[Rfam]
RNA sequence: CUCUGGAUUUUAUAAGUUCAGGGCAAAAGGAG
Numbered sequence: 001c002u003c004u005g006g007a008u009u010u011u012a013u014a015a016g017u018u019c020a021g022g023g024c025a026a027a028a029g030g031a032g
Stems, first nucleotide, its partner, number of pairs: 001023010